[Rfam]
RNA sequence: CCUUUCCUUCGGGGAUCGGCGAAAUUCCGUACCGGCGGUGUAGGCGAAGAGCCUGUAGCCCGCGAGCCUUCGGGCAGGAUCCGGUGAGAGUCCGGAGCCGACAGUGAAAGUCUGGAUGGGAGAAGGAAGGA
Numbered sequence: 001c002c003u004u005u006c007c008u009u010c011g012g013g014g015a016u017c018g019g020c021g022a023a024a025u026u027c028c029g030u031a032c033c034g035g036c037g038g039u040g041u042a043g044g045c046g047a048a049g050a051g052c053c054u055g056u057a058g059c060c061c062g063c064g065a066g067c068c069u070u071c072g073g074g075c076a077g078g079a080u081c082c083g084g085u086g087a088g089a090g091u092c093c094g095g096a097g098c099c100g101a102c103a104g105u106g107a108a109a110g111u112c113u114g115g116a117u118g119g120g121a122g123a124a125g126g127a128a129g130g131a
Base pairs, nucleotide, nucleotide: 003129004128005127006126007125008124009123010122017029018028019027031111032110033100034099035063036062037061038060058098059097068074080096081095082094083093084092102114103113104112
Dot-bracket structure: ..((((((((......(((.......))).[[((((((...................[[))))....(.....).....(((((.......)))))]])).(((.....]]))).......))))))))..
FMN riboswitch aptamer (RFN element): a 131-nucleotide sequence from Syntrophothermus lipocalidus. The base pairs follow the family's consensus structure, which is taken from published work. The source organism's lineage runs through Bacteria, Bacillati, Clostridia, Syntrophomonadaceae and Syntrophothermus lipocalidus. It scores 105 bits against the family's covariance model.